[Rfam]
RNA sequence: UAACCUAUUUAGCGAUGAAUAGCUGAACAGUCAGAAGUCAGCAGAAGUCGUAGUACCAAUGGUAUCUAGAGCCAUUGGAAAGGAC
Numbered sequence: 001u002a003a004c005c006u007a008u009u010u011a012g013c014g015a016u017g018a019a020u021a022g023c024u025g026a027a028c029a030g031u032c033a034g035a036a037g038u039c040a041g042c043a044g045a046a047g048u049c050g051u052a053g054u055a056c057c058a059a060u061g062g063u064a065u066c067u068a069g070a071g072c073c074a075u076u077g078g079a080a081a082g083g084a085c
Stems, first nucleotide, its partner, number of pairs: 001025002005022007038045002047085003056078008
The family of this 85-nucleotide RNA from Bacillus coahuilensis is "Group II catalytic intron D1-D4-1". Group II introns are found in rRNA, tRNA and mRNA of organelles in fungi, plants and protists, and also in mRNA in bacteria. Rfam 15.1 lists 2,508 matches to the family in 1,144 species. It scores 69 bits against the family's covariance model.